Small nucleolar RNA SNORA58: a 137-nucleotide RNA. Pairs were carried over by alignment from the consensus structure, which was predicted with PFOLD. Rfam classes the family as an H/ACA-box small nucleolar RNA. From the family's description: ACA52 is a member of the H/ACA class of snoRNA that guide the sites of modification of uridines to pseudouridines. The sequence is in the family's curated seed alignment.
[Rfam]
RNA sequence: GGGCAUACUCGUAGACCUUGCCUGACUGUGCUCAUGUCCAGGCAGGGGGGACAGUGUAUGCAAGAAUAAUUUGGAGUUCCUGCCAGCUCUAACCAGCUUCAUCAGUGGCUGGAUAAAUUGCAGGACUCUAAACAUUU
Numbered sequence: 001g002g003g004c005a006u007a008c009u010c011g012u013a014g015a016c017c018u019u020g021c022c023u024g025a026c027u028g029u030g031c032u033c034a035u036g037u038c039c040a041g042g043c044a045g046g047g048g049g050g051a052c053a054g055u056g057u058a059u060g061c062a063a064g065a066a067u068a069a070u071u072u073g074g075a076g077u078u079c080c081u082g083c084c085a086g087c088u089c090u091a092a093c094c095a096g097c098u099u100c101a102u103c104a105g106u107g108g109c110u111g112g113a114u115a116a117a118u119u120g121c122a123g124g125a126c127u128c129u130a131a132a133c134a135u136u137u
Stems, first nucleotide, its partner, number of pairs: 003061006016047009073129004078125001081122003093112005